[Rfam]
RNA sequence: AAAACAAGCGAAUAACUUGCUUAUAUAAUACUGAAAAUAUGGUUCAGUAGUUUCUACCGAAUACCUUAAAUAUUCGACUAUAGGCUUGUCUUUGGUAAUA
Numbered sequence: 001a002a003a004a005c006a007a008g009c010g011a012a013u014a015a016c017u018u019g020c021u022u023a024u025a026u027a028a029u030a031c032u033g034a035a036a037a038u039a040u041g042g043u044u045c046a047g048u049a050g051u052u053u054c055u056a057c058c059g060a061a062u063a064c065c066u067u068a069a070a071u072a073u074u075c076g077a078c079u080a081u082a083g084g085c086u087u088g089u090c091u092u093u094g095g096u097a098a099u100a
Base pairs, nucleotide, nucleotide: 019085020084021083022082023081024080025079029049030048031047032046033045034044035043058076059075060074061073062072063071
Dot-bracket structure: ..................(((((((...(((((((.......)))))))........((((((.......))))))..)))))))...............